[Rfam]
RNA: Makes More Granules Regulator RNA (mmgR)
Organism: Niveispirillum lacus
RNA sequence: GCUGCUUGCCCUUAUCGGGCGUUUCCUCCCUAAACUCAGGCCGCUCAUGUAGCGGCCUUUCUUUUUGCCUGCU
Numbered sequence: 001g002c003u004g005c006u007u008g009c010c011c012u013u014a015u016c017g018g019g020c021g022u023u024u025c026c027u028c029c030c031u032a033a034a035c036u037c038a039g040g041c042c043g044c045u046c047a048u049g050u051a052g053c054g055g056c057c058u059u060u061c062u063u064u065u066u067g068c069c070u071g072c073u
Stems, first nucleotide, its partner, number of pairs: 008020004038058008